[Rfam]
RNA sequence: AGGAGGAACAGCCCCAGUGGCGGGGCAGCUCUGGAAACCUGGAUUCAGCUCCGGCAGGAACUCCUCCGUCUGCAGGGCCUGGAGGCUCCGGGCGGGG
Numbered sequence: 001a002g003g004a005g006g007a008a009c010a011g012c013c014c015c016a017g018u019g020g021c022g023g024g025g026c027a028g029c030u031c032u033g034g035a036a037a038c039c040u041g042g043a044u045u046c047a048g049c050u051c052c053g054g055c056a057g058g059a060a061c062u063c064c065u066c067c068g069u070c071u072g073c074a075g076g077g078c079c080u081g082g083a084g085g086c087u088c089c090g091g092g093c094g095g096g097g
Stems, first nucleotide, its partner, number of pairs: 002089004009081003012077003019070007034063002038058004
RNA: mir-8834 microRNA precursor family
Organism: Canis lupus